[Rfam]
RNA sequence: UGGCAGUGAUGACAAUCUUAGGACACCUUUGGAACAACCAUGAUAAAAUUACCCAUUUCUCUGAGCCAU
Numbered sequence: 001u002g003g004c005a006g007u008g009a010u011g012a013c014a015a016u017c018u019u020a021g022g023a024c025a026c027c028u029u030u031g032g033a034a035c036a037a038c039c040a041u042g043a044u045a046a047a048a049u050u051a052c053c054c055a056u057u058u059c060u061c062u063g064a065g066c067c068a069u
Stems, first nucleotide, its partner, number of pairs: 001068004